The record is a 146-nucleotide sequence from Shewanella baltica, which matches "sok antitoxin (CssrC)" in Rfam. The base pairs follow the family's consensus structure, which is taken from published work. Rfam's curators write: Also identified in Shigella as CssrC. It is one of the family's seed sequences. It is annotated as an antitoxin RNA. Its family is annotated with mRNA binding in the Gene Ontology. For this family Rfam cites "An antisense RNA controls synthesis of an SOS-induced toxin evolved from an antitoxin" (Kawano et al., Mol Microbiol, 2007).
RNA sequence: GGGUGCUCUUGGCUGUUUGGCAAGAGCAUAGAUUUGCAAAGGCCAGAUAGACGAAAGCCCCGUAGUUAAUCCAUUAACCAACGAGGCAAUCUAAUGUACAUAGCAAUACAGAUAGUAGCCUCUUUACUUUUAAGGGGCAAGUUAUG
Numbered sequence: 001g002g003g004u005g006c007u008c009u010u011g012g013c014u015g016u017u018u019g020g021c022a023a024g025a026g027c028a029u030a031g032a033u034u035u036g037c038a039a040a041g042g043c044c045a046g047a048u049a050g051a052c053g054a055a056a057g058c059c060c061c062g063u064a065g066u067u068a069a070u071c072c073a074u075u076a077a078c079c080a081a082c083g084a085g086g087c088a089a090u091c092u093a094a095u096g097u098a099c100a101u102a103g104c105a106a107u108a109c110a111g112a113u114a115g116u117a118g119c120c121u122c123u124u125u126a127c128u129u130u131u132a133a134g135g136g137g138c139a140a141g142u143u144a145u146g
Stems, first nucleotide, its partner, number of pairs: 001061003005058003011052001013050009026037002062082002065078005083122005091115003095110004127136002